This 166-nucleotide sequence from Rhodovulum sp. PH10 belongs to the Rfam family "caulobacter sRNA CC2171". The family's consensus secondary structure was predicted with RNAalifold.
[Rfam]
RNA sequence: CAACAACCGAAAGGAGGUGAUCCAGUGUCUCAUUGUCUUUCGCCGCGGCCGGCGGUCACGACCUGGAUUCUCGCCUCUGCCGAGGUUUGCGUCGCCUGAGGCGGCGUUCCAGGUCCCUCGCCGGACCCGGCUCGACAAUGGAAGGGCUGCCCUCGCGGGCAGCCCU
Number, nucleotide and partner (000 for none) at each position: 001c000002a000003a000004c000005a000006a000007c000008c000009g000010a000011a000012a000013g000014g000015a000016g023017g022018u000019g000020a000021u000022c017023c016024a000025g000026u000027g000028u000029c000030u000031c140032a139033u138034u137035g136036u135037c134038u000039u000040u000041c000042g000043c000044c060045g059046c000047g057048g056049c055050c054051g000052g000053c000054g050055g049056u048057c047058a000059c045060g044061a086062c085063c084064u000065g000066g000067a000068u000069u000070c000071u000072c000073g000074c000075c000076u000077c000078u000079g000080c000081c000082g000083a000084g063085g062086u061087u112088u111089g110090c000091g000092u104093c103094g102095c101096c000097u000098g000099a000100g000101g095102c094103g093104g092105c000106g000107u000108u000109c000110c089111a088112g087113g000114u000115c000116c000117c000118u130119c129120g128121c000122c000123g000124g000125a000126c000127c000128c120129g119130g118131c000132u000133c000134g037135a036136c035137a034138a033139u032140g031141g000142a000143a166144g165145g164146g163147c162148u161149g160150c159151c158152c157153u000154c000155g000156c000157g152158g151159g150160c149161a148162g147163c146164c145165c144166u143